[Rfam]
RNA: Small nucleolar RNA SNORA81
RNA sequence: CUUUAUUUGUAGAAGUACUGGGCUAAAAUUGCGGAAACUAGAUCACAUCUUGGGUUUUGUAAUGAUGCUAGCAAAGUACAUACAAGAAGAACAGGAACUGCACUAGAGUGUAAAGACUAGGGUGAGCCUCUCUCUUAAUGCCCAGUAUCUUUGUCUUAAGGUAGGAUGCACUACAU
Number, nucleotide and partner (000 for none) at each position: 001c000002u000003u000004u000005a000006u000007u000008u000009g000010u000011a000012g000013a000014a000015g000016u000017a000018c076019u075020g000021g000022g072023c071024u070025a069026a000027a000028a066029u065030u064031g063032c000033g000034g057035a056036a000037a000038c053039u052040a051041g049042a048043u047044c000045a000046c000047a043048u042049c041050u000051u040052g039053g038054g000055u000056u035057u034058u000059g000060u000061a000062a000063u031064g030065a029066u028067g000068c000069u025070a024071g023072c022073a000074a000075a019076g018077u000078a000079c000080a000081u000082a000083c000084a000085a000086g000087a000088a000089g000090a000091a000092c000093a000094g000095g000096a000097a000098c000099u170100g169101c168102a167103c000104u165105a000106g000107a162108g000109u000110g000111u000112a000113a000114a000115g000116a000117c000118u000119a148120g000121g146122g000123u144124g143125a000126g141127c000128c000129u000130c000131u000132c000133u000134c000135u000136u000137a000138a000139u000140g000141c126142c000143c124144a123145g000146u121147a000148u119149c000150u000151u000152u000153g000154u000155c000156u000157u000158a000159a000160g000161g000162u107163a000164g000165g104166a000167u102168g101169c100170a099171c000172u000173a000174c000175a000176u000